A member of the RNA family "mir-484 microRNA precursor family" from Mus musculus, 66 nucleotides long. The family's consensus secondary structure was predicted with RNAalifold. Lineage of the source: Eukaryota > Chordata > Gnathostomata > Euteleostomi > Mus. Gene Ontology terms of the family: miRNA-mediated post-transcriptional gene silencing and RISC complex.
RNA sequence: UCGUCAGGCUCAGUCCCCUCCCGAUAAACCUCAAAAUAGGGUCUUACCUAGGGGGCUGGCGGCGUA
Numbered sequence: 001u002c003g004u005c006a007g008g009c010u011c012a013g014u015c016c017c018c019u020c021c022c023g024a025u026a027a028a029c030c031u032c033a034a035a036a037u038a039g040g041g042u043c044u045u046a047c048c049u050a051g052g053g054g055g056c057u058g059g060c061g062g063c064g065u066a
Base pairs, nucleotide, nucleotide: 003065004064008060010058013056014055015054016053017052018051019050023047026045027044030041031040032039